Source information:
Shown here is a 232-nucleotide RNA from Spirobacillus cienkowskii, a member of the family "Group II catalytic intron D1-D4-6". It scores 107 bits against the family's covariance model. Taxonomically the source falls in Spirobacillus (Bacteria, Pseudomonadati, Bdellovibrionota, Silvanigrellales). For this family Rfam cites "The ins and outs of group II introns" (Bonen and Vogel, Trends Genet, 2001).
RNA sequence: AAAUGCUCUUUCAUUUAAAGGUUAACCACCAGAAUGAAACUGAGUUUUGCAGGGGAGGAGGUAACAAAUCUCUUGAAGCGUAAACAGGGAGUAUUCAGACCGUAACAACAGUGAACGGAAUAACCCCGCUAAUACCGGUAGUAAAGUUGUUGACUCAGUUGGAUUCCUGGGGAAAACAGAAACUGAAUAAACAUCAAUGGUGAGUCUAUUCAGUAACUUUCGGGGUACUGCC
Numbered sequence: 001a002a003a004u005g006c007u008c009u010u011u012c013a014u015u016u017a018a019a020g021g022u023u024a025a026c027c028a029c030c031a032g033a034a035u036g037a038a039a040c041u042g043a044g045u046u047u048u049g050c051a052g053g054g055g056a057g058g059a060g061g062u063a064a065c066a067a068a069u070c071u072c073u074u075g076a077a078g079c080g081u082a083a084a085c086a087g088g089g090a091g092u093a094u095u096c097a098g099a100c101c102g103u104a105a106c107a108a109c110a111g112u113g114a115a116c117g118g119a120a121u122a123a124c125c126c127c128g129c130u131a132a133u134a135c136c137g138g139u140a141g142u143a144a145a146g147u148u149g150u151u152g153a154c155u156c157a158g159u160u161g162g163a164u165u166c167c168u169g170g171g172g173a174a175a176a177c178a179g180a181a182a183c184u185g186a187a188u189a190a191a192c193a194u195c196a197a198u199g200g201u202g203a204g205u206c207u208a209u210u211c212a213g214u215a216a217c218u219u220u221c222g223g224g225g226u227a228c229u230g231c232c
Stems, first nucleotide, its partner, number of pairs: 011037005020030003023203001025201002040088002044085004048080002050075007060065001120229001121227001123226006143220006149177003154171004182214008191205002